[Rfam]
RNA sequence: AGUGUUUAAGGCCACAGCAGAAGCGCUCAUGGCGUGGCCUUGUCAGAUUCCAGUGGAUCUGCAAAUUCUGCU
Numbered sequence: 001a002g003u004g005u006u007u008a009a010g011g012c013c014a015c016a017g018c019a020g021a022a023g024c025g026c027u028c029a030u031g032g033c034g035u036g037g038c039c040u041u042g043u044c045a046g047a048u049u050c051c052a053g054u055g056g057a058u059c060u061g062c063a064a065a066u067u068c069u070g071c072u
Stems, first nucleotide, its partner, number of pairs: 009040005016072007023035003044061007
Background: The record is a 72-nucleotide RNA from Alligator sinensis, which matches "Mammalian CPEB3 ribozyme" in Rfam. A search with the family's covariance model found it, with a score of 61 bits. Lineage of the source: Eukaryota > Opisthokonta > Metazoa > Vertebrata > Alligator. The family's consensus secondary structure is taken from published work.